[Rfam]
Nucleotides: 054
Base pairs, nucleotide, nucleotide: 001054002053003052006051007050008049010047011046013045014044016041017040019038020037022035023034024033025032026031
Number, partner (000 for none) and nucleotide at each position: 001054a002053a003052a004000g005000u006051a007050g008049c009000g010047u011046a012000u013045g014044c015000a016041a017040c018000a019038g020037c021000u022035a023034u024033g025032g026031a027000u028000u029000g030000g031026u032025u033024u034023a035022u036000c037020g038019c039000c040017g041016u042000c043000u044014g045013c046011u047010a048000c049008g050007c051006u052003u053002u054001u
Annotation: This 54-nucleotide RNA sequence from Notiomystis cincta belongs to the Rfam family "Editing element of GABA-3 exon 9". The organism belongs to Notiomystis, within Eukaryota. The base pairs follow the family's consensus structure, which is taken from published work. Rfam 15.1 lists 4,208 matches to the family in 654 species. A reference for the family is Ohlson et al. (2007), "Editing modifies the GABA(A) receptor subunit alpha3", RNA. It is annotated as a cis-regulatory element.